[Rfam]
RNA: FMN riboswitch aptamer (RFN element)
Organism: Gordonia amarae
Nucleotides: 166
Base pairs, nucleotide, nucleotide: 005162006161007160008159009158010157017029018028019027031146032145033135034134035073036072037071038070068133069132076111077110115131116130117129118128119127137149138148139147
Number, partner (000 for none) and nucleotide at each position: 001000a002000g003000a004000a005162g006161u007160u008159c009158u010157c011000g012000g013000g014000g015000c016000g017029g018028g019027g020000u021000g022000a023000a024000a025000u026000u027019c028018c029017c030000c031146a032145c033135c034134g035073g036072c037071g038070g039000u040000g041000a042000c043000g044000u045000c046000c047000g048000u049000g050000a051000c052000c053000a054000c055000g056000a057000g058000g059000u060000c061000c062000g063000g064000c065000g066000a067000a068133g069132c070038c071037c072036g073035c074000g075000a076111g077110c078000g079000c080000u081000g082000c083000c084000u085000a086000c087000c088000c089000g090000g091000u092000c093000a094000c095000c096000g097000g098000g099000c100000g101000g102000g103000c104000g105000g106000g107000u108000c109000a110077g111076c112000a113000g114000a115131u116130c117129c118128g119127g120000u121000g122000u123000g124000a125000u126000u127119c128118c129117g130116g131115a132069g133068c134034c135033g136000a137149c138148g139147g140000u141000g142000a143000c144000a145032g146031u147139c148138c149137g150000g151000a152000u153000g154000c155000g156000a157010g158009a159008g160007a161006a162005c163000a164000g165000g166000c